[Rfam]
The record is a 53-nucleotide sequence from Sphingomonas melonis, which matches "nhaA-I RNA" in Rfam.
RNA sequence: GGGUGCGCCUUUACCAGGGGUGCAGGCAUGUUGCGCUGGUCGGGCCGCCAGCG
Numbered sequence: 001g002g003g004u005g006c007g008c009c010u011u012u013a014c015c016a017g018g019g020g021u022g023c024a025g026g027c028a029u030g031u032u033g034c035g036c037u038g039g040u041c042g043g044g045c046c047g048c049c050a051g052c053g
Stems, first nucleotide, its partner, number of pairs: 005023008034053007

Notes:
NCBI's taxonomy places the organism under Bacteria, Pseudomonadati, Pseudomonadota, Alphaproteobacteria, Sphingomonas. Acidobacteria, Alphaproteobacteria, Betaproteobacteria and Gammaproteobacteria, Verrucomicrobia, cand. division NC10. The family's consensus secondary structure is taken from published work.